[Rfam]
RNA sequence: UCCCGAAUGCUUCGGGAUUAAGGAAGCUGGAAGCAAAACACUGCCCCAAGGAAUACGAACCGCAUCAGGCAUAUCCUGUAGGAUGAGUUUACAAAACAAGACGAAGUCCAAAGACUAUACGAAUACAGGAGUGUAAAUGCGGUGGGGACAUGGUGUGAAAGUUAUUUAU
Numbered sequence: 001u002c003c004c005g006a007a008u009g010c011u012u013c014g015g016g017a018u019u020a021a022g023g024a025a026g027c028u029g030g031a032a033g034c035a036a037a038a039c040a041c042u043g044c045c046c047c048a049a050g051g052a053a054u055a056c057g058a059a060c061c062g063c064a065u066c067a068g069g070c071a072u073a074u075c076c077u078g079u080a081g082g083a084u085g086a087g088u089u090u091a092c093a094a095a096a097c098a099a100g101a102c103g104a105a106g107u108c109c110a111a112a113g114a115c116u117a118u119a120c121g122a123a124u125a126c127a128g129g130a131g132u133g134u135a136a137a138u139g140c141g142g143u144g145g146g147g148a149c150a151u152g153g154u155g156u157g158a159a160a161g162u163u164a165u166u167u168a169u
Stems, first nucleotide, its partner, number of pairs: 001016003005012002026169001029166002033162002038156006044147005060142005069134003074130007081109004087102004
RNA: Group II catalytic intron D1-D4-3